Rfam assigns this 185-nucleotide RNA sequence from Eptatretus burgeri to the family "Small nucleolar RNA SNORA23".
The match comes from Rfam's covariance-model search (52 bits).
Rfam's curators write: The members of this family belong to the H/ACA class of snoRNAs which are thought to guide the sites of modification of uridines to pseudouridines.
It is annotated as an H/ACA-box small nucleolar RNA.

RNA sequence: CUGGCGAUGUGUACUUGGUACUUUUUCCAUGACAGGCGUGUUACCCCAGUGUUUUACUGGUGUUGAGCAUGCUCUCACAAGCCAUUGGGGCCUCAUAUUAACUUUGGGGUCAUAGUAAUGGCCUGGCGACAUCUGAUUAAUUUCAGACCUUCUCCACGGGUCAGCCUCCGUAUCCCCUCACACUC
Numbered sequence: 001c002u003g004g005c006g007a008u009g010u011g012u013a014c015u016u017g018g019u020a021c022u023u024u025u026u027c028c029a030u031g032a033c034a035g036g037c038g039u040g041u042u043a044c045c046c047c048a049g050u051g052u053u054u055u056a057c058u059g060g061u062g063u064u065g066a067g068c069a070u071g072c073u074c075u076c077a078c079a080a081g082c083c084a085u086u087g088g089g090g091c092c093u094c095a096u097a098u099u100a101a102c103u104u105u106g107g108g109g110u111c112a113u114a115g116u117a118a119u120g121g122c123c124u125g126g127c128g129a130c131a132u133c134u135g136a137u138u139a140a141u142u143u144c145a146g147a148c149c150u151u152c153u154c155c156a157c158g159g160g161u162c163a164g165c166c167u168c169c170g171u172a173u174c175c176c177c178u179c180a181c182a183c184u185c
Stems, first nucleotide, its partner, number of pairs: 014087001030079002034075003037071006045062001048058003106177004119163005126157001128155001132147005